Rfam assigns this 110-nucleotide RNA sequence from Solanum lycopersicum to the family "Plastid-psbA-1 3UTR RNA". The family's consensus secondary structure was predicted with LocARNA. The family's RNA type in Rfam is cis-regulatory element. The organism belongs to Solanum subgen. Lycopersicon, within Eukaryota. It scores 74 bits against the family's covariance model.
RNA sequence: UCGAACCUCAUCUACAAAUGGAUAAGAUCCUUACCUAGUCUGUAAGUGUCUGAAAAUAAAGGAGAAAUAAUCAUUUUCUUGUUUUGUCAAGAGGGUGCUAUUGCUCCUUU
Numbered sequence: 001u002c003g004a005a006c007c008u009c010a011u012c013u014a015c016a017a018a019u020g021g022a023u024a025a026g027a028u029c030c031u032u033a034c035c036u037a038g039u040c041u042g043u044a045a046g047u048g049u050c051u052g053a054a055a056a057u058a059a060a061g062g063a064g065a066a067a068u069a070a071u072c073a074u075u076u077u078c079u080u081g082u083u084u085u086g087u088c089a090a091g092a093g094g095g096u097g098c099u100a101u102u103g104c105u106c107c108u109u110u
Stems, first nucleotide, its partner, number of pairs: 008022001009020003058110007066102004072097003076093005